RNA sequence: CCCAUCAAUCGCUCAGUAGUCAGUGUAGAUUCUGUAUUUACAGUCAGCAGCUACAUCUGGCUACUGGGUCUCUGAUGACAUCU
Number, nucleotide and partner (000 for none) at each position: 001c000002c000003c000004a000005u000006c000007a000008a000009u000010c000011g000012c000013u067014c066015a065016g064017u063018a062019g000020u060021c059022a058023g056024u055025g054026u053027a052028g051029a000030u000031u000032c050033u049034g048035u047036a000037u000038u000039u000040a000041c000042a000043g000044u000045c000046a000047g035048c034049a033050g032051c028052u027053a026054c025055a024056u023057c000058u022059g021060g020061c000062u018063a017064c016065u015066g014067g013068g000069u000070c000071u000072c000073u000074g000075a000076u000077g000078a000079c000080a000081u000082c000083u000